[Rfam]
RNA sequence: GGCGUAAAGAGCACGUAGGCGGCCUGGUAAGUCAGAUGUGAAAGCCCGGGGCUUAACCCCGGAAGUGCAUUUGAUACUGCCAGGCUUGAGUAUGGGAGAGGGAAGUGGAAUUCCUGGUGUAGAGGUGAAAUUCGUAGAUAUCAGGAGGAACACCGGUGGCGAAGGCGACUUCCUGGACCAAUACUGACGCUGAGGUGCGAAGGCGUGGGUAGCAAACAGGAUUAGAUACCCUGGUAGUCCACGCAGUAAACGUUGUUCACUAGGUGUAGCGGGUAUUGACCCCUGCUGUGCCGCAGUUAACGCAUUAAGUGAACCGCCUGGGGAGUACGGCCGCAAGGUUAAAACUCAAAGGAAU
Numbered sequence: 001g002g003c004g005u006a007a008a009g010a011g012c013a014c015g016u017a018g019g020c021g022g023c024c025u026g027g028u029a030a031g032u033c034a035g036a037u038g039u040g041a042a043a044g045c046c047c048g049g050g051g052c053u054u055a056a057c058c059c060c061g062g063a064a065g066u067g068c069a070u071u072u073g074a075u076a077c078u079g080c081c082a083g084g085c086u087u088g089a090g091u092a093u094g095g096g097a098g099a100g101g102g103a104a105g106u107g108g109a110a111u112u113c114c115u116g117g118u119g120u121a122g123a124g125g126u127g128a129a130a131u132u133c134g135u136a137g138a139u140a141u142c143a144g145g146a147g148g149a150a151c152a153c154c155g156g157u158g159g160c161g162a163a164g165g166c167g168a169c170u171u172c173c174u175g176g177a178c179c180a181a182u183a184c185u186g187a188c189g190c191u192g193a194g195g196u197g198c199g200a201a202g203g204c205g206u207g208g209g210u211a212g213c214a215a216a217c218a219g220g221a222u223u224a225g226a227u228a229c230c231c232u233g234g235u236a237g238u239c240c241a242c243g244c245a246g247u248a249a250a251c252g253u254u255g256u257u258c259a260c261u262a263g264g265u266g267u268a269g270c271g272g273g274u275a276u277u278g279a280c281c282c283c284u285g286c287u288g289u290g291c292c293g294c295a296g297u298u299a300a301c302g303c304a305u306u307a308a309g310u311g312a313a314c315c316g317c318c319u320g321g322g323g324a325g326u327a328c329g330g331c332c333g334c335a336a337g338g339u340u341a342a343a344a345c346u347c348a349a350a351g352g353a354a355u
Stems, first nucleotide, its partner, number of pairs: 001318003009315001011198004016192001018191003022085007030078002032074009046062006089185003093180003100174007107151001111147008122133003159166002203244006212238002217233004255314006263292011296303002320347003329340004